[Rfam]
RNA sequence: AUCUCCCAUGGUUUUGAUUGUUGCUCAGAAAGCCUUGCGUUUUUAAAUGGCUUUCUAGUAAUAAUCAUAGCCAUGAGAC
Numbered sequence: 001a002u003c004u005c006c007c008a009u010g011g012u013u014u015u016g017a018u019u020g021u022u023g024c025u026c027a028g029a030a031a032g033c034c035u036u037g038c039g040u041u042u043u044u045a046a047a048u049g050g051c052u053u054u055c056u057a058g059u060a061a062u063a064a065u066c067a068u069a070g071c072c073a074u075g076a077g078a079c
Stems, first nucleotide, its partner, number of pairs: 004078002007075001012070002015067004020062006028055007

Rfam assigns this 79-nucleotide RNA sequence from Apolygus lucorum to the family "mir-315 microRNA precursor family". Gene Ontology terms of the family: RISC complex and miRNA-mediated post-transcriptional gene silencing. The literature on the family includes a 2007 paper in Genome Res by Stark et al., "Systematic discovery and characterization of fly microRNAs using 12 Drosophila genomes". The match comes from Rfam's covariance-model search (64 bits).